[Rfam]
Bacterial small subunit ribosomal RNA: a 559-nucleotide part of an RNA from bacterium 1xD42-67. Gene Ontology terms of the family: structural constituent of ribosome and ribosome. For this family Rfam cites "Crystal structure of the ribosome at 5.5 A resolution" (Yusupov et al., Science, 2001). A search with the family's covariance model found it, with a score of 1576 bits.

RNA sequence: UUUAUUGAGAGUUUGAUCCUGGCUCAGGAUGAACGCUGGCGGCGUGCUUAACACAUGCAAGUCGAACGGAGCACCCCUGACGGAGUUUUCGGACAACUGAAGGGACUGCUUAGUGGCGGACGGGUGAGUAACGCGUGAGCAACCUACCUUGGAGUGGGGAAUAACAGCUGGAAACAGCUGCUAAUACCGCAUGAUAUGUCUGUAUCACAUGGUACUGGACAUCAAAGAUCUAUCGCUCUGAGAUGGGCUCGCGUCUGAUUAGCUAGUUGGUGAGGUAACGGCCCACCAAGGCGACGAUCAGUAGCCGGACUGAGAGGUUGGCCGGCCACAUUGGGACUGAGACACGGCCCAGACUCCUACGGGAGGCAGCAGUGGGGAAUAUUGGGCAAUGGGCGAAAGCCUGACCCAGCAACGCCGCGUGAAGGAAGAAGGCUCUCGGGUUGUAAACUUCUUUUAUCAGGGACGAAGCAAGUGACGGUACCUGAUGAAUAAGCCACGGCUAACUACGUGCCAGCAGCCGCGGUAAUACGUAGGUGGCAAGCGUUAUCCGGAUUUACUG
Dot-bracket structure: ........(((((.......))))).((((.((((((.(((((((((....(((.(((..(((..((.(...(.................................)..)..)))))......(((......((((((((..((...(((((((.(.((.....((((((....))))))......)).).....(((((((.(((....)))..)))))))....((....)).)))))))..))))))))))(((....(((..((((((.(.......).)))))))))......)))..((((((((....))))...))))))).(((((............))))).((((....))))...)))))).).....(.(((...(((((....))))).)))).)).))))))..((((......((((....)))).....))))....((((((...(..........)....))))))......(((((......(((((.....((....)).......)))))))))).))))))))))..........
Numbered sequence: 001u002u003u004a005u006u007g008a009g010a011g012u013u014u015g016a017u018c019c020u021g022g023c024u025c026a027g028g029a030u031g032a033a034c035g036c037u038g039g040c041g042g043c044g045u046g047c048u049u050a051a052c053a054c055a056u057g058c059a060a061g062u063c064g065a066a067c068g069g070a071g072c073a074c075c076c077c078u079g080a081c082g083g084a085g086u087u088u089u090c091g092g093a094c095a096a097c098u099g100a101a102g103g104g105a106c107u108g109c110u111u112a113g114u115g116g117c118g119g120a121c122g123g124g125u126g127a128g129u130a131a132c133g134c135g136u137g138a139g140c141a142a143c144c145u146a147c148c149u150u151g152g153a154g155u156g157g158g159g160a161a162u163a164a165c166a167g168c169u170g171g172a173a174a175c176a177g178c179u180g181c182u183a184a185u186a187c188c189g190c191a192u193g194a195u196a197u198g199u200c201u202g203u204a205u206c207a208c209a210u211g212g213u214a215c216u217g218g219a220c221a222u223c224a225a226a227g228a229u230c231u232a233u234c235g236c237u238c239u240g241a242g243a244u245g246g247g248c249u250c251g252c253g254u255c256u257g258a259u260u261a262g263c264u265a266g267u268u269g270g271u272g273a274g275g276u277a278a279c280g281g282c283c284c285a286c287c288a289a290g291g292c293g294a295c296g297a298u299c300a301g302u303a304g305c306c307g308g309a310c311u312g313a314g315a316g317g318u319u320g321g322c323c324g325g326c327c328a329c330a331u332u333g334g335g336a337c338u339g340a341g342a343c344a345c346g347g348c349c350c351a352g353a354c355u356c357c358u359a360c361g362g363g364a365g366g367c368a369g370c371a372g373u374g375g376g377g378a379a380u381a382u383u384g385g386g387c388a389a390u391g392g393g394c395g396a397a398a399g400c401c402u403g404a405c406c407c408a409g410c411a412a413c414g415c416c417g418c419g420u421g422a423a424g425g426a427a428g429a430a431g432g433c434u435c436u437c438g439g440g441u442u443g444u445a446a447a448c449u450u451c452u453u454u455u456a457u458c459a460g461g462g463a464c465g466a467a468g469c470a471a472g473u474g475a476c477g478g479u480a481c482c483u484g485a486u487g488a489a490u491a492a493g494c495c496a497c498g499g500c501u502a503a504c505u506a507c508g509u510g511c512c513a514g515c516a517g518c519c520g521c522g523g524u525a526a527u528a529c530g531u532a533g534g535u536g537g538c539a540a541g542c543g544u545u546a547u548c549c550g551g552a553u554u555u556a557c558u559g
Stems, first nucleotide, its partner, number of pairs: 009025005027549004032545006039418006045411002047376001052374003056371003061117003066114002069110001073107001124329003133254008143246002148242007156190001158188002165180006196222007204213003227234002255301003262292003267289006274282001304326004308319004331352005354365004382408001384407003390403005421451004431442004456486006465476001493538005504533005514521002